[Rfam]
RNA sequence: CUUCCCGAGGAGCGUUGCGAUGGCCGGCCAGGCCACCAGGCUCGGGACCCGCGCAGCCCAGGCCAGCGCGGCCGGCAACGACGCUCGCCCCCG
Numbered sequence: 001c002u003u004c005c006c007g008a009g010g011a012g013c014g015u016u017g018c019g020a021u022g023g024c025c026g027g028c029c030a031g032g033c034c035a036c037c038a039g040g041c042u043c044g045g046g047a048c049c050c051g052c053g054c055a056g057c058c059c060a061g062g063c064c065a066g067c068g069c070g071g072c073c074g075g076c077a078a079c080g081a082c083g084c085u086c087g088c089c090c091c092c093g
Stems, first nucleotide, its partner, number of pairs: 003047006021035005
About this RNA: Shown here is a 93-nucleotide RNA sequence from Rubrivivax albus, a member of the family "SAH (S-adenosyl-L-homocysteine) riboswitch aptamer". For this family Rfam cites "Riboswitches that sense S-adenosylhomocysteine and activate genes involved in coenzyme recycling" (Wang et al., Mol Cell, 2008).